[Rfam]
Nucleotides: 107
Stems, first nucleotide, its partner, number of pairs: 001107008013041001015040003021031003025078001027076002042070004047066002049063004074099001079096006
Number, partner (000 for none) and nucleotide at each position: 001107c002106u003105c004104u005103u006102a007101u008100c009000c010000a011000g012000a013041g014000u015040g016039g017038c018000a019000g020000a021031g022030g023029g024000a025078c026000u027076g028075g029023c030022c031021c032000g033000a034000u035000g036000a037000c038017g039016c040015c041013c042070g043069g044068c045067a046000a047066c048065c049063u050062u051061u052060c053000u054000u055000u056000u057000a058000u059000a060052g061051a062050a063049a064000a065048g066047g067045u068044g069043c070042u071000a072000a073000u074099u075028c076027c077000u078025g079096c080095a081094a082093a083092a084091c085000a086000g087000a088000a089000a090000u091084g092083u093082u094081u095080u096079g097000g098000a099074a100008g101007a102006u103005g104004a105003g106002a107001g